RNA: Small nucleolar RNA SNORD105
RNA sequence: UAAUAUCAUGUGAAGAUGACAAACCCAUGUGCCUCUGAGCUGCCAUGACUCUGGCUUCUUAGUCAGUGCUCUGGGGAGGAUGGAGGUAUU
Numbered sequence: 001u002a003a004u005a006u007c008a009u010g011u012g013a014a015g016a017u018g019a020c021a022a023a024c025c026c027a028u029g030u031g032c033c034u035c036u037g038a039g040c041u042g043c044c045a046u047g048a049c050u051c052u053g054g055c056u057u058c059u060u061a062g063u064c065a066g067u068g069c070u071c072u073g074g075g076g077a078g079g080a081u082g083g084a085g086g087u088a089u090u
Stems, first nucleotide, its partner, number of pairs: 002090004007085001009083001